[Rfam]
Nucleotides: 109
Base pairs, nucleotide, nucleotide: 001108002107003106005104006103011098012097013096014095015094016093017092018091019090020089021088022087023086024085025084026083027082028080029069031067032066034064035063049059052056
Number, partner (000 for none) and nucleotide at each position: 001108u002107u003106a004000g005104u006103g007000g008000a009000c010000g011098c012097u013096u014095u015094g016093g017092c018091u019090a020089u021088u022087g023086a024085a025084c026083u027082g028080u029069u030000c031067u032066g033000g034064c035063a036000c037000u038000c039000u040000c041000u042000g043000a044000c045000a046000g047000u048000a049059a050000a051000c052056a053000a054000u055000u056052u057000u058000c059049u060000c061000u062000u063035u064034g065000a066032c067031a068000u069029a070000g071000a072000g073000g074000g075000a076000c077000a078000a079000a080028a081000u082027c083026a084025g085024u086023u087022c088021a089020a090019u091018a092017g093016c094015u095014a096013a097012a098011g099000c100000g101000u102000c103006c104005a105000g106003u107002a108001a109000c

The family of this 109-nucleotide sequence from Plutella xylostella is "mir-8517 microRNA precursor family".